[Rfam]
RNA sequence: CCCGGUGCGUUGCACCGGGCUGUAAUAUCCCGCCCCUUCGGGGCU
Numbered sequence: 001c002c003c004g005g006u007g008c009g010u011u012g013c014a015c016c017g018g019g020c021u022g023u024a025a026u027a028u029c030c031c032g033c034c035c036c037u038u039c040g041g042g043g044c045u
Stems, first nucleotide, its partner, number of pairs: 001019008032044005
Shown here is a 45-nucleotide RNA sequence from Desulfonema ishimotonii, a member of the family "Acido-Lenti-1 RNA". The family's RNA type in Rfam is small RNA.